[Rfam]
RNA sequence: UACACACAGUACUGUAAGUCGCUUUGGAUAAAAAUGUCUGCUUAAUGGCAUAUU
Numbered sequence: 001u002a003c004a005c006a007c008a009g010u011a012c013u014g015u016a017a018g019u020c021g022c023u024u025u026g027g028a029u030a031a032a033a034a035u036g037u038c039u040g041c042u043u044a045a046u047g048g049c050a051u052a053u054u
Base pairs, nucleotide, nucleotide: 014041015040016039020036021035023033024032025031
RNA: UnaL2 LINE 3' element